[Rfam]
Shown here is an 82-nucleotide RNA from Drosophila willistoni, a member of the family "mir-31 microRNA precursor family". Clan: mir-31 microRNA precursor family.
RNA sequence: GUUUUUCGAAUUGGCAAGAUGUCGGCAUAGCUGAUAAUAUUUUUAGAAAAGCGCUAUGCUGCAUCUAGUCAGUUUAUUCAAU
Numbered sequence: 001g002u003u004u005u006u007c008g009a010a011u012u013g014g015c016a017a018g019a020u021g022u023c024g025g026c027a028u029a030g031c032u033g034a035u036a037a038u039a040u041u042u043u044u045a046g047a048a049a050a051g052c053g054c055u056a057u058g059c060u061g062c063a064u065c066u067a068g069u070c071a072g073u074u075u076a077u078u079c080a081a082u
Stems, first nucleotide, its partner, number of pairs: 006076001008075008017066005023061009